MicA sRNA: a 74-nucleotide RNA. Rfam links the family to the GO term mRNA binding. On this family, see Argaman et al., Curr Biol 2001: "Novel small RNA-encoding genes in the intergenic regions of Escherichia coli".

[Rfam]
RNA sequence: GAAAGACGCGCAUUUGUUAUCAUCAUCCCUGUAAACAGAGAUGUUUGUUUUGGCCACAUUGAUUGUGGCCUUUU
Numbered sequence: 001g002a003a004a005g006a007c008g009c010g011c012a013u014u015u016g017u018u019a020u021c022a023u024c025a026u027c028c029c030u031g032u033a034a035a036c037a038g039a040g041a042u043g044u045u046u047g048u049u050u051u052g053g054c055c056a057c058a059u060u061g062a063u064u065g066u067g068g069c070c071u072u073u074u
Stems, first nucleotide, its partner, number of pairs: 024043004029038003052070007